[Rfam]
RNA sequence: GCGUGGGUCGGCCCGCCGCGCGGAUCCCGUGGGAACCGGGUGGGCCGGGGGAUGCCGCUGCCUCAAUCCCCGCGGGUGGCGGAACGGGCCGGGGGGUGCAUCCCACCCCCCGGCCCGCG
Numbered sequence: 001g002c003g004u005g006g007g008u009c010g011g012c013c014c015g016c017c018g019c020g021c022g023g024a025u026c027c028c029g030u031g032g033g034a035a036c037c038g039g040g041u042g043g044g045c046c047g048g049g050g051g052a053u054g055c056c057g058c059u060g061c062c063u064c065a066a067u068c069c070c071c072g073c074g075g076g077u078g079g080c081g082g083a084a085c086g087g088g089c090c091g092g093g094g095g096g097u098g099c100a101u102c103c104c105a106c107c108c109c110c111c112g113g114c115c116c117g118c119g
Stems, first nucleotide, its partner, number of pairs: 001118002006085001008083001009047009048053001055082009086116013
Notes:
A member of the RNA family "Streptomyces RNA 4115" from Streptomyces sp. A1136, 119 nucleotides long. On this family, see Vockenhuber et al., RNA Biol 2011: "Deep sequencing-based identification of small non-coding RNAs in Streptomyces coelicolor". Lineage of the source: Bacteria > Actinomycetes > Kitasatosporales > Streptomycetaceae > Streptomyces. From the family's description: Identified by deep sequencing of transcriptome at the end of exponential growth phase. Sequencing size consistent with notrthern blot size. Streptomyces specific. It is annotated as a small RNA.